The record is a 75-nucleotide RNA from Haemonchus placei, which matches "mir-5928 microRNA precursor family" in Rfam. The match comes from Rfam's covariance-model search (76 bits).
[Rfam]
RNA sequence: GGUCCAAAUUUGAAGUAAAGCAGACUGGUACGAUCAGUUGACCCUACUAAACUACUCUACUUUGAAUUUGGGCCC
Numbered sequence: 001g002g003u004c005c006a007a008a009u010u011u012g013a014a015g016u017a018a019a020g021c022a023g024a025c026u027g028g029u030a031c032g033a034u035c036a037g038u039u040g041a042c043c044c045u046a047c048u049a050a051a052c053u054a055c056u057c058u059a060c061u062u063u064g065a066a067u068u069u070g071g072g073c074c075c
Stems, first nucleotide, its partner, number of pairs: 001074009011064007019056002022053002026049005032043001034041002